[Rfam]
RNA sequence: GCUGUCCUGGACCUGCCAGCACCACAGGCACAGCCACUCUGUUCCUGUGACUUCGGGGCAAAGAGCAUCUGGCUAUUUCUACGCUCAGUGUUCGGAGACCAGUGAGCACUAAGAAUGGUUUAUAGCCAGACAUUU
Numbered sequence: 001g002c003u004g005u006c007c008u009g010g011a012c013c014u015g016c017c018a019g020c021a022c023c024a025c026a027g028g029c030a031c032a033g034c035c036a037c038u039c040u041g042u043u044c045c046u047g048u049g050a051c052u053u054c055g056g057g058g059c060a061a062a063g064a065g066c067a068u069c070u071g072g073c074u075a076u077u078u079c080u081a082c083g084c085u086c087a088g089u090g091u092u093c094g095g096a097g098a099c100c101a102g103u104g105a106g107c108a109c110u111a112a113g114a115a116u117g118g119u120u121u122a123u124a125g126c127c128a129g130a131c132a133u134u135u
Base pairs, nucleotide, nucleotide: 003060004059005058006057007056008055009054010053024048025047026046027045071127072126073125079118080117081116084113085112089108090107091106092105093104094103
Dot-bracket structure: ..((((((((.............((((.................))))....))))))))..........(((.....(((..((...((((((........))))))...))..)))......)))........

Small nucleolar RNA SNORA43: a 135-nucleotide RNA from Fukomys damarensis. Lineage of the source: Eukaryota > Craniata > Boreoeutheria > Hystricomorpha > Fukomys. Gene Ontology terms of the family: nucleolus and RNA processing. Pairs were carried over by alignment from the consensus structure, which was predicted with RNAfold. ACA43 is a member of the H/ACA class of snoRNA that guide the sites of modification of uridines to pseudouridines. Its Rfam clan is "SNORA17 clan".